RNA: mir-33 microRNA precursor family
RNA sequence: CGGGAGUGCAUUGUAGUUGCAUUGCACUUGUUACCGUUUUUGUGCAAUAUUACUACAAGGCAAUUCUCG
Numbered sequence: 001c002g003g004g005a006g007u008g009c010a011u012u013g014u015a016g017u018u019g020c021a022u023u024g025c026a027c028u029u030g031u032u033a034c035c036g037u038u039u040u041u042g043u044g045c046a047a048u049a050u051u052a053c054u055a056c057a058a059g060g061c062a063a064u065u066c067u068c069g
Base pairs, nucleotide, nucleotide: 001069002068003067004066006065007062008061009060011058012057013056014055015054016053019050021048022047023046024045025044026043027042